Source information:
Shown here is a 56-nucleotide RNA from Corynebacterium glutamicum, a member of the family "L31-Corynebacteriaceae ribosomal protein leader". It is one of the family's seed sequences.
[Rfam]
RNA sequence: ACUCGGGCACGAUCUGGCAUCCGCUGGAACCGACCUGAAGUUUCAAUCCUGAGGGA
Number, nucleotide and partner (000 for none) at each position: 001a041002c040003u039004c037005g036006g035007g034008c000009a000010c000011g000012a000013u028014c027015u026016g025017g024018c023019a000020u000021c000022c000023g018024c017025u016026g015027g014028a013029a000030c000031c000032g000033a000034c007035c006036u005037g004038a000039a003040g002041u001042u000043u000044c000045a000046a000047u000048c000049c000050u000051g000052a000053g000054g000055g000056a000
On this family, see Eckert and Weinberg, BMC Microbiol 2020: "Discovery of 20 novel ribosomal leader candidates in bacteria and archaea". Taxonomically the source falls in Corynebacterium glutamicum (Bacteria, Actinomycetota, Actinomycetes, Corynebacterium).